Record summary:
The record is a 128-nucleotide RNA from Caenorhabditis bovis, which matches "Caenorhabditis snoRNA ceN48" in Rfam. The base pairs follow the family's consensus structure, which was predicted with RNAalifold. It is annotated as an H/ACA-box small nucleolar RNA. The family has 5 seed sequences and 12 matches in Rfam 15.1. Gene Ontology terms of the family: RNA processing and nucleolus. It scores 91 bits against the family's covariance model. The source organism's lineage runs through Eukaryota, Eumetazoa, Protostomia, Rhabditoidea and Caenorhabditis.
RNA sequence: UCGCACGCUGAAAGUCGGGAGAGCCGUCCUAAAAGCUGUCUCGUUGAUAAUGUGUGCAAUAAUGACGCCAUUGGUAUCAUUCUUCUUGCUUACGAACAGCAACGGAACAUCUAAAUUUGGCUACAUUU
Dot-bracket structure: ..((((((.......(((((.(((..........))).)))))........)))))).........((((....((...((((..(((((.......))))).))))....))....)))).......
Numbered sequence: 001u002c003g004c005a006c007g008c009u010g011a012a013a014g015u016c017g018g019g020a021g022a023g024c025c026g027u028c029c030u031a032a033a034a035g036c037u038g039u040c041u042c043g044u045u046g047a048u049a050a051u052g053u054g055u056g057c058a059a060u061a062a063u064g065a066c067g068c069c070a071u072u073g074g075u076a077u078c079a080u081u082c083u084u085c086u087u088g089c090u091u092a093c094g095a096a097c098a099g100c101a102a103c104g105g106a107a108c109a110u111c112u113a114a115a116u117u118u119g120g121c122u123a124c125a126u127u128u
Stems, first nucleotide, its partner, number of pairs: 003057006016043005022037003067121004075113002080107004086102005